[Rfam]
RNA sequence: AGAGCAGGCUGCAAUUGCAGUGCUCCCUGCAGUGGGAGCCCUGCCAUUCCCCUGCUGAGAGCAACUCUGUUAACACUGUCAGCCGUUUCACCCCUACCAUGGUGGAAACGUGUGUUCUUAACAUGGACAUCA
Numbered sequence: 001a002g003a004g005c006a007g008g009c010u011g012c013a014a015u016u017g018c019a020g021u022g023c024u025c026c027c028u029g030c031a032g033u034g035g036g037a038g039c040c041c042u043g044c045c046a047u048u049c050c051c052c053u054g055c056u057g058a059g060a061g062c063a064a065c066u067c068u069g070u071u072a073a074c075a076c077u078g079u080c081a082g083c084c085g086u087u088u089c090a091c092c093c094c095u096a097c098c099a100u101g102g103u104g105g106a107a108a109c110g111u112g113u114g115u116u117c118u119u120a121a122c123a124u125g126g127a128c129a130u131c132a
Stems, first nucleotide, its partner, number of pairs: 003056006018043003022039005065126002068123006075116001084110002086107007

Rfam assigns this 132-nucleotide RNA sequence from Scytalopus superciliaris to the family "Small nucleolar RNA SNORA69". Rfam classes the family as an H/ACA-box small nucleolar RNA. Rfam 15.1 lists 808 matches to the family in 584 species. Rfam describes the family as follows. U69 is a member of the H/ACA class of small nucleolar RNAs (snoRNAs) which act as guides in the the modification of uridines to pseudouridines. Lineage of the source: Eukaryota > Opisthokonta > Craniata > Amniota > Scytalopus. The base pairs follow the family's consensus structure, which was predicted with PFOLD.